[Rfam]
A member of the RNA family "mir-130 microRNA precursor family" from Geotrypetes seraphini, 105 nucleotides long.

RNA sequence: UCUUUCUUUGAGGCCGCUGCACAUUGCGCCGCUGGCUUCAUUGUUGUAUUGGUGCAUACAACAAUGAAGCCAGCGGCGCAAUGUACAGCGGCCUCAAAGAAAACG
Numbered sequence: 001u002c003u004u005u006c007u008u009u010g011a012g013g014c015c016g017c018u019g020c021a022c023a024u025u026g027c028g029c030c031g032c033u034g035g036c037u038u039c040a041u042u043g044u045u046g047u048a049u050u051g052g053u054g055c056a057u058a059c060a061a062c063a064a065u066g067a068a069g070c071c072a073g074c075g076g077c078g079c080a081a082u083g084u085a086c087a088g089c090g091g092c093c094u095c096a097a098a099g100a101a102a103a104c105g
Stems, first nucleotide, its partner, number of pairs: 001105001003103001005100006012093008022083026

A search with the family's covariance model found it, with a score of 44 bits. The organism belongs to Geotrypetes, within Eukaryota.